[Rfam]
RNA sequence: CAUAGAUAAAGGCAAAUCUACUGAAAGGUAGAGACGCAAAGCUACGGGCCUAAGGUUAUUGACUAUGGCAGCCGGGUUACCUAA
Numbered sequence: 001c002a003u004a005g006a007u008a009a010a011g012g013c014a015a016a017u018c019u020a021c022u023g024a025a026a027g028g029u030a031g032a033g034a035c036g037c038a039a040a041g042c043u044a045c046g047g048g049c050c051u052a053a054g055g056u057u058a059u060u061g062a063c064u065a066u067g068g069c070a071g072c073c074g075g076g077u078u079a080c081c082u083a084a
Stems, first nucleotide, its partner, number of pairs: 012037002017032006040078004045074003048069003055063003
RNA: c-di-GMP-I riboswitch aptamer
Organism: Clostridium fungisolvens